A member of the RNA family "mir-541 microRNA precursor family" from Pteropus alecto, 84 nucleotides long.
RNA sequence: ACGUCAGGGAAGGGGUUCUGCCGUCGGUCCCACUGCAAAGUUCGCAGAGUGGGAGGUGGGCGCAGAAUCCCGACUCUGCUUGUG
Number, nucleotide and partner (000 for none) at each position: 001a083002c082003g081004u000005c078006a077007g076008g075009g074010a000011a000012g000013g070014g069015g068016u067017u066018c065019u064020g063021c000022c062023g061024u060025c059026g000027g057028u000029c000030c056031c055032a000033c053034u052035g000036c000037a000038a000039a000040g000041u000042u000043c000044g000045c000046a000047g000048a000049g000050u000051g000052g034053g033054a000055g031056g030057u027058g000059g025060g024061c023062g022063c020064a019065g018066a017067a016068u015069c014070c013071c000072g000073a000074c009075u008076c007077u006078g005079c000080u000081u003082g002083u001084g000
The family's consensus secondary structure was predicted with RNAalifold. A search with the family's covariance model found it, with a score of 84 bits. The family has 8 seed sequences and 125 matches in Rfam 15.1.